The family of this 78-nucleotide sequence from Anguilla anguilla is "Small nucleolar RNA SNORD126". NCBI's taxonomy places the organism under Eukaryota, Chordata, Actinopterygii, Anguillidae, Anguilla. The base pairs follow the family's consensus structure, which was predicted with WAR. Its family is annotated with RNA processing and nucleolus in the Gene Ontology. It scores 55 bits against the family's covariance model. The family's RNA type in Rfam is C/D-box small nucleolar RNA.
RNA sequence: CUUUUGCAGUGAUGAGUUGCAUGUCAGUCCGUGUUUCACCUGAGAAUCCUGUGAUUAUGCACAUGCACUGAGCAAGUC
Numbered sequence: 001c002u003u004u005u006g007c008a009g010u011g012a013u014g015a016g017u018u019g020c021a022u023g024u025c026a027g028u029c030c031g032u033g034u035u036u037c038a039c040c041u042g043a044g045a046a047u048c049c050u051g052u053g054a055u056u057a058u059g060c061a062c063a064u065g066c067a068c069u070g071a072g073c074a075a076g077u078c
Stems, first nucleotide, its partner, number of pairs: 003076005